[Rfam]
RNA sequence: GCUAAGACUAGAAUCACAACCAGAAACAGCAUUGUCCUGUCGUGCUAGAGUCCUCAGAGAAAAUCUACUGGUCCUGAUUUACUGGUACAGGUAAUCAGAAGUCCUAUGAUUGUCUGGUCAGAAACAUGC
Numbered sequence: 001g002c003u004a005a006g007a008c009u010a011g012a013a014u015c016a017c018a019a020c021c022a023g024a025a026a027c028a029g030c031a032u033u034g035u036c037c038u039g040u041c042g043u044g045c046u047a048g049a050g051u052c053c054u055c056a057g058a059g060a061a062a063a064u065c066u067a068c069u070g071g072u073c074c075u076g077a078u079u080u081a082c083u084g085g086u087a088c089a090g091g092u093a094a095u096c097a098g099a100a101g102u103c104c105u106a107u108g109a110u111u112g113u114c115u116g117g118u119c120a121g122a123a124a125c126a127u128g129c
Stems, first nucleotide, its partner, number of pairs: 002057002005054002007051003012046001015044003019040002023036002026033001068121004073117002076114001080112002083109001085107001087105001090102001092100001

The record is a 129-nucleotide RNA sequence from Sciurus vulgaris, which matches "Small nucleolar RNA SNORA3/SNORA45 family" in Rfam. Rfam links the family to the GO terms nucleolus and RNA processing. The family is grouped with related families in Rfam's "SNORA3 clan". Lineage of the source: Eukaryota > Deuterostomia > Mammalia > Sciuromorpha > Sciurus. Rfam describes the family as follows. The members of this family belong to the H/ACA class of snoRNAs which are thought to guide the sites of modification of uridines to pseudouridines. This family includes mouse snoMBI-28 and human homologues ACA3 (SNORA3) and ACA3-2 (SNORA45). Both ACA3 and ACA3-2 share the same host gene. MBI-28, ACA3 and ACA3-2 are all predicted to guide the pseudouridylation of residues in 28S rRNA. Pairs were carried over by alignment from the consensus structure, which was predicted with RNAalifold. On this family, see Huttenhofer et al., EMBO J 2001: "RNomics: an experimental approach that identifies 201 candidates for novel, small, non-messenger RNAs in mouse". It scores 64 bits against the family's covariance model.